A member of the RNA family "Small nucleolar RNA SNORA65" from Python bivittatus, 130 nucleotides long. From the family's description: U65 belongs to the H/ACA class of snoRNAs which are thought to guide the sites of modification of uridines to pseudouridines. A search with the family's covariance model found it, with a score of 88 bits. The family is grouped with related families in Rfam's "SNORA65 clan".

RNA sequence: CCCGCCACUGUGCCUGCCCAUUUUCAUCUAUGGCUUGUACAUUCCAGUGGUGAGCUGAGAGGAACCCCCUUUCAAGGAAACAGAGCUACUCUCUCCGUGGGUAACUCUGUGCCGAAGACUGGGAACAGAA
Numbered sequence: 001c002c003c004g005c006c007a008c009u010g011u012g013c014c015u016g017c018c019c020a021u022u023u024u025c026a027u028c029u030a031u032g033g034c035u036u037g038u039a040c041a042u043u044c045c046a047g048u049g050g051u052g053a054g055c056u057g058a059g060a061g062g063a064a065c066c067c068c069c070u071u072u073c074a075a076g077g078a079a080a081c082a083g084a085g086c087u088a089c090u091c092u093c094u095c096c097g098u099g100g101g102u103a104a105c106u107c108u109g110u111g112c113c114g115a116a117g118a119c120u121g122g123g124a125a126c127a128g129a130a
Stems, first nucleotide, its partner, number of pairs: 005050006018037001020035001022032001066123003070118003076113002081109005089101003